Background: This 94-nucleotide RNA sequence from Tardibacter chloracetimidivorans belongs to the Rfam family "Repression of heat shock gene expression (ROSE) element". About the family: This family represents a 5' UTR cis-regulatory element found in heat shock mRNAs and is known as the ROSE (repression of heat shock gene expression) element. The ROSE element is a negative regulator of heat shock gene expression. Pairs were carried over by alignment from the consensus structure, which is taken from published work. The family's RNA type in Rfam is RNA thermoregulator. The literature on the family includes a 2001 paper in Nucleic Acids Res by Nocker et al., "A mRNA-based thermosensor controls expression of rhizobial heat shock genes". Lineage of the source: Bacteria > Pseudomonadati > Pseudomonadota > Sphingomonadales > Tardibacter.
[Rfam]
RNA sequence: CCGGGUGCCGACAGGACCCGGCAUGGAGAGUGCGUCCGCUCUCUCGGACGCUCUUCAUACACUCGUUGCUCAAAGGAGGACUUGUUUAUGAGGA
Numbered sequence: 001c002c003g004g005g006u007g008c009c010g011a012c013a014g015g016a017c018c019c020g021g022c023a024u025g026g027a028g029a030g031u032g033c034g035u036c037c038g039c040u041c042u043c044u045c046g047g048a049c050g051c052u053c054u055u056c057a058u059a060c061a062c063u064c065g066u067u068g069c070u071c072a073a074a075g076g077a078g079g080a081c082u083u084g085u086u087u088a089u090g091a092g093g094a
Stems, first nucleotide, its partner, number of pairs: 001021006008015002030053001032051007054092006061085002065081003069078003